[Rfam]
RNA sequence: UAUCUUUGCAGCCGUAUUGACCAAGGUGGUUAGUCUACAUAAUAAUCAUUUACACAAAUAUUAGCAUG
Numbered sequence: 001u002a003u004c005u006u007u008g009c010a011g012c013c014g015u016a017u018u019g020a021c022c023a024a025g026g027u028g029g030u031u032a033g034u035c036u037a038c039a040u041a042a043u044a045a046u047c048a049u050u051u052a053c054a055c056a057a058a059u060a061u062u063a064g065c066a067u068g
Stems, first nucleotide, its partner, number of pairs: 016034007
Shown here is a 68-nucleotide RNA sequence, a member of the family "S15-Flavobacteria ribosomal protein leader".
It is annotated as a cis-regulatory leader.
The family is grouped with related families in Rfam's "Ribosomal Protein S15 Leader clan".
The sequence is in the family's curated seed alignment.